[Rfam]
RNA: mir-2788 microRNA precursor family
RNA sequence: GAACAGUGUCGCCGUAGAGCUGGGGUUUCGAAGCGGCAUGUGCCUUCUGUCAUGCAAUGCCCUUGGAAAUCCCAAACAUGCUGGCGACGACA
Numbered sequence: 001g002a003a004c005a006g007u008g009u010c011g012c013c014g015u016a017g018a019g020c021u022g023g024g025g026u027u028u029c030g031a032a033g034c035g036g037c038a039u040g041u042g043c044c045u046u047c048u049g050u051c052a053u054g055c056a057a058u059g060c061c062c063u064u065g066g067a068a069a070u071c072c073c074a075a076a077c078a079u080g081c082u083g084g085c086g087a088c089g090a091c092a
Base pairs, nucleotide, nucleotide: 008088009087010086011085012084013083014081015080016079021074022073023072024071025070026069027068028067029066031064032063033062035061036060037059038058039057041056042055043054